The record is a 66-nucleotide RNA sequence from Nyctereutes procyonoides, which matches "MAT2A 3'UTR stem loop E" in Rfam. For this family Rfam cites "New families of human regulatory RNA structures identified by comparative analysis of vertebrate genomes" (Parker et al., Genome Res, 2011). The match comes from Rfam's covariance-model search (49 bits). Pairs were carried over by alignment from the consensus structure, which is taken from published work.
RNA sequence: CCAAUAUUCCCAGGUAGCCCACAGUGUCCUACAAAAAAACUCUGGGUUAGACAUAUGGGGUUCUGG
Numbered sequence: 001c002c003a004a005u006a007u008u009c010c011c012a013g014g015u016a017g018c019c020c021a022c023a024g025u026g027u028c029c030u031a032c033a034a035a036a037a038a039a040c041u042c043u044g045g046g047u048u049a050g051a052c053a054u055a056u057g058g059g060g061u062u063c064u065g066g
Base pairs, nucleotide, nucleotide: 001066002065003064006062008060009059010058011057014056015055016054019045020044021043023041024040025039026032027031